A member of the RNA family "mir-184 microRNA precursor family" from Pediculus humanus, 83 nucleotides long.
[Rfam]
Nucleotides: 083
Stems, first nucleotide, its partner, number of pairs: 012072009021062006029054002
Number, partner (000 for none) and nucleotide at each position: 001000u002000c003000u004000a005000c006000u007000a008000c009000g010000a011000u012072u013071c014070c015069u016068u017067g018066u019065c020064a021062u022061u023060c024059u025058u026057c027000u028000g029054u030053c031000c032000g033000g034000c035000g036000a037000g038000c039000u040000u041000u042000c043000a044000u045000u046000a047000a048000a049000u050000g051000u052000u053030g054029g055000a056000c057026g058025g059024a060023g061022a062021a063000c064020u065019g066018a067017u068016a069015a070014g071013g072012g073000c074000u075000c076000g077000u078000g079000g080000a081000u082000g083000a